[Rfam]
RNA sequence: GGCCGGAGAAGGCGUUUACGCUGCAUCCGGCAUCCGAGCACCAUUGCCUGAUGCGACGCUUACGCGUCUUAUCAGGUC
Numbered sequence: 001g002g003c004c005g006g007a008g009a010a011g012g013c014g015u016u017u018a019c020g021c022u023g024c025a026u027c028c029g030g031c032a033u034c035c036g037a038g039c040a041c042c043a044u045u046g047c048c049u050g051a052u053g054c055g056a057c058g059c060u061u062a063c064g065c066g067u068c069u070u071a072u073c074a075g076g077u078c
Stems, first nucleotide, its partner, number of pairs: 002031006011022004046077008055068005